[Rfam]
Shown here is a 49-nucleotide RNA sequence from Oscillatoria sp. FACHB-1406, a member of the family "Nitrogen stress-induced RNA 1".
RNA sequence: GAGUAGAUGCACCCUAAACAAUCCCUAGCGCCAGCUGGGGAUUUUUUUU
Numbered sequence: 001g002a003g004u005a006g007a008u009g010c011a012c013c014c015u016a017a018a019c020a021a022u023c024c025c026u027a028g029c030g031c032c033a034g035c036u037g038g039g040g041a042u043u044u045u046u047u048u049u
Stems, first nucleotide, its partner, number of pairs: 003012002022041008
Pairs were carried over by alignment from the consensus structure. The organism belongs to Oscillatoria, within Bacteria.